[Rfam]
RNA: Small nucleolar RNA SNORA23
RNA sequence: GCAGAAUCGUGUGCAUAGUUUUCCAUCUAUGUCUGGUAGUACAGCCUGUCUGUGUUUUGCAUUUAGACUGUACUGCUCACACAAAACCUGUGGCCAAAGAUGAACCUGAGAUCAUAGUACUGGUCUAGUGAUGUCUGAAAGACAAGCCUCUUGCUGGCCAGCCUCCACACUCUCAAACACCU
Numbered sequence: 001g002c003a004g005a006a007u008c009g010u011g012u013g014c015a016u017a018g019u020u021u022u023c024c025a026u027c028u029a030u031g032u033c034u035g036g037u038a039g040u041a042c043a044g045c046c047u048g049u050c051u052g053u054g055u056u057u058u059g060c061a062u063u064u065a066g067a068c069u070g071u072a073c074u075g076c077u078c079a080c081a082c083a084a085a086a087c088c089u090g091u092g093g094c095c096a097a098a099g100a101u102g103a104a105c106c107u108g109a110g111a112u113c114a115u116a117g118u119a120c121u122g123g124u125c126u127a128g129u130g131a132u133g134u135c136u137g138a139a140a141g142a143c144a145a146g147c148c149u150c151u152u153g154c155u156g157g158c159c160a161g162c163c164u165c166c167a168c169a170c171u172c173u174c175a176a177a178c179a180c181c182u
Base pairs, nucleotide, nucleotide: 013091014090015089030083031082032081034079035078036077037075038074039073040072041071042070044068046066047065048064051061052060053059107175108174109173110172111171120161121160122159123158124157125156127155128154129153130152132146133143134142135141